Notes
FMN riboswitch aptamer (RFN element): a 130-nucleotide RNA sequence from Propionibacterium freudenreichii.
RNA sequence: CAACGUGCCCGGGGUCGGUGUAAGUCCGAACCGGCGGUGACAGUCCGCGAACCGCGGCCCCUCGUGGGGUCCGGCCGAACCGGUGGGAUUCCGGUACCGACGGUGAAAGUCCGGAGGGGAGAGCGCGUGA
Dot-bracket structure: ..((((((.(.....(((.......))).[[((((((.....[[))))...((...................))....(((((.......)))))]])).(((.....]]))).......).))))))..